[Rfam]
The record is an 83-nucleotide RNA from Denticeps clupeoides, which matches "Small nucleolar RNA SNORD111" in Rfam.

RNA sequence: UGCUGUAGAAGUGAUGAGAUUUUUCAUGUCUCUUCUCUGACUUGUAAACCUUGGAGAGACUUUCUACUUCUCUGAUCACAGCA
Numbered sequence: 001u002g003c004u005g006u007a008g009a010a011g012u013g014a015u016g017a018g019a020u021u022u023u024u025c026a027u028g029u030c031u032c033u034u035c036u037c038u039g040a041c042u043u044g045u046a047a048a049c050c051u052u053g054g055a056g057a058g059a060c061u062u063u064c065u066a067c068u069u070c071u072c073u074g075a076u077c078a079c080a081g082c083a
Stems, first nucleotide, its partner, number of pairs: 001083006
A search with the family's covariance model found it, with a score of 48 bits.